About this RNA: The record is a 91-nucleotide sequence, which matches "RT-9 RNA" in Rfam. Rfam's curators put it in the seed alignment. The base pairs follow the family's consensus structure, which is taken from published work.
[Rfam]
RNA sequence: GACUGCUGUGUUAAUCAGAUGCAGCAGCACGACUUGAUAAGUUCAAGAGAGUCAUGUUCUUUCGGCUAUGCCGUAAAAAUAAAGUACAAAC
Numbered sequence: 001g002a003c004u005g006c007u008g009u010g011u012u013a014a015u016c017a018g019a020u021g022c023a024g025c026a027g028c029a030c031g032a033c034u035u036g037a038u039a040a041g042u043u044c045a046a047g048a049g050a051g052u053c054a055u056g057u058u059c060u061u062u063c064g065g066c067u068a069u070g071c072c073g074u075a076a077a078a079a080u081a082a083a084g085u086a087c088a089a090a091c
Base pairs, nucleotide, nucleotide: 003027004026005025006024007023008022009021010020011019012018063073064072065071066070